[Rfam]
RNA: MIR1508 microRNA precursor family
RNA sequence: AAUUGCUAUCCAACUGCUAUUCCCAUUUCUAAACCUUGUUACACGAGCAUCUUGAUCAAUGGUCUAGAAAGGGAAAUAGCAGUUGAGUGGUGCUU
Number, nucleotide and partner (000 for none) at each position: 001a000002a000003u000004u000005g091006c090007u089008a088009u087010c000011c085012a084013a083014c082015u081016g080017c079018u078019a077020u076021u075022c000023c073024c072025a000026u070027u069028u068029c067030u066031a065032a000033a063034c062035c061036u059037u058038g057039u000040u000041a000042c000043a000044c054045g053046a052047g051048c000049a000050u000051c047052u046053u045054g044055a000056u000057c038058a037059a036060u000061g035062g034063u033064c000065u031066a030067g029068a028069a027070a026071g000072g024073g023074a000075a021076a020077u019078a018079g017080c016081a015082g014083u013084u012085g011086a000087g009088u008089g007090g006091u005092g000093c000094u000095u000